[Rfam]
RNA sequence: UACGAGCGGGCCUGACUCUUUGCUCUGCCCGUACUGUUCCUGCUGGGUGAGCAAAGUUUCAGGUGUGUCCGUGA
Numbered sequence: 001u002a003c004g005a006g007c008g009g010g011c012c013u014g015a016c017u018c019u020u021u022g023c024u025c026u027g028c029c030c031g032u033a034c035u036g037u038u039c040c041u042g043c044u045g046g047g048u049g050a051g052c053a054a055a056g057u058u059u060c061a062g063g064u065g066u067g068u069c070c071g072u073g074a
Stems, first nucleotide, its partner, number of pairs: 002072003006068002010064006018056004023051003028047003
About this RNA: mir-87 microRNA precursor family: a 74-nucleotide sequence from Heterotrigona itama. Rfam links the family to the GO terms miRNA-mediated post-transcriptional gene silencing and RISC complex. It scores 60 bits against the family's covariance model. The family has 44 seed sequences and 420 matches in Rfam 15.1. NCBI's taxonomy places the organism under Eukaryota, Protostomia, Arthropoda, Apocrita, Heterotrigona.